[Rfam]
RNA sequence: GAAGAGCUCUACGUCGAAGGAGUAGCGACCCACGACGACCCCGAGCCAUGUGGCUGCUUCCGUAAGGGGGCUGCUGAAGCGUUGGUAGGGGCACGUGUAGGCCGGGCUAUUGAGCCGCGAAAUGAACAGUUCCAGGGUGCCGACACGUUCAGAUCCGUGGAAGGCAACACCGCCGGGAGCGUUAGUCGCGAGUUCCCGGGGGACCCGGCGCGGUCAGAGAACC
Numbered sequence: 001g002a003a004g005a006g007c008u009c010u011a012c013g014u015c016g017a018a019g020g021a022g023u024a025g026c027g028a029c030c031c032a033c034g035a036c037g038a039c040c041c042c043g044a045g046c047c048a049u050g051u052g053g054c055u056g057c058u059u060c061c062g063u064a065a066g067g068g069g070g071c072u073g074c075u076g077a078a079g080c081g082u083u084g085g086u087a088g089g090g091g092c093a094c095g096u097g098u099a100g101g102c103c104g105g106g107c108u109a110u111u112g113a114g115c116c117g118c119g120a121a122a123u124g125a126a127c128a129g130u131u132c133c134a135g136g137g138u139g140c141c142g143a144c145a146c147g148u149u150c151a152g153a154u155c156c157g158u159g160g161a162a163g164g165c166a167a168c169a170c171c172g173c174c175g176g177g178a179g180c181g182u183u184a185g186u187c188g189c190g191a192g193u194u195c196c197c198g199g200g201g202g203a204c205c206c207g208g209c210g211c212g213g214u215c216a217g218a219g220a221a222c223c
Base pairs, nucleotide, nucleotide: 012037013036014035015034016033019031020030023191025189026188039091040090041089042088045086046085047084048083049081050080051076052075053074054073056071057070058069059068060067061066111217112215114214115213116212117211118210119209133208135206136205137204138203139165140164141163144159145158146157147156170202171201173199174198175197176196177195178194179193180192
The record is a 223-nucleotide sequence from Parafrankia sp. EAN1pec, which matches "Group II catalytic intron D1-D4-6" in Rfam. The base pairs follow the family's consensus structure. Gene Ontology term of the family: Group II intron splicing. From the family's description: Group II introns are found in rRNA, tRNA and mRNA of organelles in fungi, plants and protists, and also in mRNA in bacteria.